RNA sequence: AAAGCCGGUUGAAACAAGAUUUAUCGUGAGAAGUCAGCAGACGCCAUAGUUAUUUCCAACGGAAACGAAGGGC
Dot-bracket structure: ((..(..((....))..).))...........(((....)))(((.......(((((...))))).....)))

Group II catalytic intron D1-D4-1: a 73-nucleotide sequence from Bacillus aquiflavi. Taxonomically the source falls in Bacillus (Bacteria, Bacillota, Bacilli, Caryophanales). A search with the family's covariance model found it, with a score of 45 bits. Rfam links the family to the GO term Group II intron splicing. Pairs were carried over by alignment from the consensus structure. Rfam describes the family as follows. Group II introns are found in rRNA, tRNA and mRNA of organelles in fungi, plants and protists, and also in mRNA in bacteria.